[Rfam]
RNA sequence: GGGUUACUCCUUGGCGCUUGCGCGCUGUUUUGAUGAAGAUUCGCACCUCUAUCAAAACGGGUAACCCCGCCUCUUGGCAAGGCCUUACUGUCAGAUCAAGUCUGAACUUCUACAAUUGUAGCGACGCCGCCAUUGCUCAAUGACGACCUUGGCCUCGAGCCGUGUCCGAAACCACUCCAGGCUCAGACAUUCGUCCCUGAACUUGCCG
Numbered sequence: 001g002g003g004u005u006a007c008u009c010c011u012u013g014g015c016g017c018u019u020g021c022g023c024g025c026u027g028u029u030u031u032g033a034u035g036a037a038g039a040u041u042c043g044c045a046c047c048u049c050u051a052u053c054a055a056a057a058c059g060g061g062u063a064a065c066c067c068c069g070c071c072u073c074u075u076g077g078c079a080a081g082g083c084c085u086u087a088c089u090g091u092c093a094g095a096u097c098a099a100g101u102c103u104g105a106a107c108u109u110c111u112a113c114a115a116u117u118g119u120a121g122c123g124a125c126g127c128c129g130c131c132a133u134u135g136c137u138c139a140a141u142g143a144c145g146a147c148c149u150u151g152g153c154c155u156c157g158a159g160c161c162g163u164g165u166c167c168g169a170a171a172c173c174a175c176u177c178c179a180g181g182c183u184c185a186g187a188c189a190u191u192c193g194u195c196c197c198u199g200a201a202c203u204u205g206c207c208g
Base pairs, nucleotide, nucleotide: 001067002066003065004064005063006062007061009060010059014025015024016023017022027058028057029056030055031054032053033052034051035050037048038047075168076167077166081161082160084159085158090107091106092104093103094102095101096100110152111151112150114149192208193207196205
This 208-nucleotide RNA sequence from Burkholderia glumae belongs to the Rfam family "Proteobacterial sRNA psRNA2". The family's RNA type in Rfam is small RNA. For this family Rfam cites "Computational prediction and transcriptional analysis of sRNAs in Nitrosomonas europaea" (Gvakharia et al., FEMS Microbiol Lett, 2010). Lineage of the source: Bacteria > Pseudomonadota > Burkholderiales > Burkholderia > Burkholderia glumae. The pairing is the family consensus, mapped onto this sequence. A search with the family's covariance model found it, with a score of 145 bits. The family has 7 seed sequences and 122 matches in Rfam 15.1.